[Rfam]
RNA sequence: GGUCAUGAGCUCCGACGUCAAGCCCCGGCUGGUCGGACGGCAACCCCCCGCGCGGGUGGGUGCCCCGGGUGAGGACCAGGUUUGGCCGCGCCAGCGGUGAGACAACACGCGAGCC
Numbered sequence: 001g002g003u004c005a006u007g008a009g010c011u012c013c014g015a016c017g018u019c020a021a022g023c024c025c026c027g028g029c030u031g032g033u034c035g036g037a038c039g040g041c042a043a044c045c046c047c048c049c050g051c052g053c054g055g056g057u058g059g060g061u062g063c064c065c066c067g068g069g070u071g072a073g074g075a076c077c078a079g080g081u082u083u084g085g086c087c088g089c090g091c092c093a094g095c096g097g098u099g100a101g102a103c104a105a106c107a108c109g110c111g112a113g114c115c
Base pairs, nucleotide, nucleotide: 001077002076003075004074009038011037012036013035014034015033016032021030022029039064040063041062044060045059046058048055049054080103081102082101083100085098086097087096088095089094

SAM (S-adenosyl methionine) riboswitch aptamer: a 115-nucleotide RNA from Xylanimonas allomyrinae. Rfam's curators write: SAM-IV is a mRNA element that regulates gene expression via direct sensing of S-adenosylmethionine (SAM or AdoMet). SAM-IV riboswitches share conserved nucleotide positions with the previously described SAM-I riboswitches sequence analysis and molecular recognition experiments suggest that SAM-I and SAM-IV riboswitches share similar ligand binding sites, but have different scaffolds. The source organism's lineage runs through Bacteria, Bacillati, Actinomycetota, Actinomycetes and Xylanimonas.